[Rfam]
Group II catalytic intron D1-D4-7: a 138-nucleotide sequence from Vibrionales bacterium SWAT-3. Group II introns are found in rRNA, tRNA and mRNA of organelles in fungi, plants and protists, and also in mRNA in bacteria. NCBI's taxonomy places the organism under Bacteria, Pseudomonadati, Pseudomonadota, Gammaproteobacteria, Vibrionales. Rfam's curators put it in the seed alignment.
RNA sequence: CCAUCUGUAUCACCAGAUGAACCUAUGAGCCUGAAUAAAGCAGCGGCUCAGACAAUGUAACGAAGAGCGGGAAUAUCCCGUUCGGGAUUUGAAUCGUGAGAAGAAGAUCCUCCUGAUAACCACAAAUCGGGUGAGUGC
Numbered sequence: 001c002c003a004u005c006u007g008u009a010u011c012a013c014c015a016g017a018u019g020a021a022c023c024u025a026u027g028a029g030c031c032u033g034a035a036u037a038a039a040g041c042a043g044c045g046g047c048u049c050a051g052a053c054a055a056u057g058u059a060a061c062g063a064a065g066a067g068c069g070g071g072a073a074u075a076u077c078c079c080g081u082u083c084g085g086g087a088u089u090u091g092a093a094u095c096g097u098g099a100g101a102a103g104a105a106g107a108u109c110c111u112c113c114u115g116a117u118a119a120c121c122a123c124a125a126a127u128c129g130g131g132u133g134a135g136u137g138c
Stems, first nucleotide, its partner, number of pairs: 002019006027049005065083006084110003088107001094101002112131006